[Rfam]
RNA sequence: GCCGGGCGUCGUGGCGGGCGCUUGUAAACCAAGUUUCUGGGUGGCUGAGUUUGCGGGAACGGCCCGAGUCAGGACCAAACGGCCUCUGAUGGGGCGGCUGUAGACCGAGCGUCCGUUUCAAGGGCGGCGUCGACAAGGGACGGUGCCCGCAGGGGCUGCAGUUCCUGGUCGGUUAAAGAGGGAAGCACUGGCCCAGGCCCCACAGGGAGCAAGCUAAAUUCCCCGCGCCGUUACAGUGAGCGGAUGGCGCUCGCGAGGUCCUCCAACUGGGGUUGCCUGGCUGGGACCGCGACUCGAACUUUU
Number, nucleotide and partner (000 for none) at each position: 001g045002c044003c043004g023005g022006g021007c020008g019009u018010c017011g000012u000013g000014g000015c000016g000017g010018g009019c008020g007021c006022u005023u004024g000025u000026a000027a000028a042029c041030c040031a000032a000033g000034u000035u000036u000037c000038u000039g000040g030041g029042u028043g003044g002045c001046u000047g301048a300049g299050u298051u297052u296053g295054c000055g293056g000057g000058a000059a000060c289061g288062g287063c000064c285065c284066g000067a282068g281069u280070c279071a278072g277073g276074a000075c000076c000077a000078a000079a000080c275081g274082g273083c272084c271085u270086c269087u000088g000089a000090u265091g264092g263093g262094g000095c000096g260097g259098c258099u257100g000101u255102a000103g000104a000105c000106c253107g252108a251109g250110c249111g248112u247113c243114c242115g000116u000117u240118u239119c238120a237121a000122g234123g000124g231125c230126g229127g228128c227129g226130u225131c171132g170133a169134c168135a000136a166137g165138g164139g163140a162141c161142g000143g159144u158145g157146c155147c154148c153149g000150c000151a000152g000153g148154g147155g146156c000157u145158g144159c143160a000161g141162u140163u139164c138165c137166u136167g000168g134169u133170c132171g131172g000173u177174u000175a000176a000177a173178g000179a000180g223181g222182g221183a220184a219185g000186c000187a000188c000189u216190g215191g214192c213193c000194c000195a000196g000197g000198c207199c206200c205201c000202a000203c000204a000205g200206g199207g198208a000209g000210c000211a000212a000213g192214c191215u190216a189217a000218a000219u184220u183221c182222c181223c180224c000225g130226c129227g128228c127229c126230g125231u124232u000233a000234c122235a000236g000237u120238g119239a118240g117241c000242g114243g113244a000245u000246g000247g112248c111249g110250c109251u108252c107253g106254c000255g101256a000257g099258g098259u097260c096261c000262u093263c092264c091265a090266a000267c000268u000269g086270g085271g084272g083273u082274u081275g080276c073277c072278u071279g070280g069281c068282u067283g000284g065285g064286a000287c062288c061289g060290c000291g000292a000293c055294u000295c053296g052297a051298a050299c049300u048301u047302u000303u000
A member of the RNA family "Metazoan signal recognition particle RNA" from Bursaphelenchus xylophilus, 303 nucleotides long. The source organism's lineage runs through Eukaryota, Eumetazoa, Nematoda, Tylenchina and Bursaphelenchus. Clan: SRP clan. Its family is annotated with signal recognition particle, endoplasmic reticulum targeting and SRP-dependent cotranslational protein targeting to membrane, signal sequence recognition in the Gene Ontology. The family's RNA type in Rfam is non-coding RNA gene. From the family's description: The signal recognition particle (SRP) is a universally conserved ribonucleoprotein. The match comes from Rfam's covariance-model search (172 bits).